[Rfam]
A member of the RNA family "chrB-a RNA" from Shimia sp. SK013, 80 nucleotides long.
It is annotated as a cis-regulatory element.
RNA sequence: GUUCAGGGGUCUGCAAGAACCUCGUGAGGCGCCAGCCCAAACUUGCAUCCUUCCAACCUGUUCAAGGAGGAUGCUUUAUG
Numbered sequence: 001g002u003u004c005a006g007g008g009g010u011c012u013g014c015a016a017g018a019a020c021c022u023c024g025u026g027a028g029g030c031g032c033c034a035g036c037c038c039a040a041a042c043u044u045g046c047a048u049c050c051u052u053c054c055a056a057c058c059u060g061u062u063c064a065a066g067g068a069g070g071a072u073g074c075u076u077u078a079u080g
Stems, first nucleotide, its partner, number of pairs: 006023005045074006